[Rfam]
RNA sequence: GCCACAUGAUUAUGUUCAGAUUUCAUGAGCACCAUGUGCCAAGAUGACUCCUCAUCUAUCACCCAAGACUGAUGGCU
Numbered sequence: 001g002c003c004a005c006a007u008g009a010u011u012a013u014g015u016u017c018a019g020a021u022u023u024c025a026u027g028a029g030c031a032c033c034a035u036g037u038g039c040c041a042a043g044a045u046g047a048c049u050c051c052u053c054a055u056c057u058a059u060c061a062c063c064c065a066a067g068a069c070u071g072a073u074g075g076c077u
Base pairs, nucleotide, nucleotide: 001076002075003074004073029039030038031037032036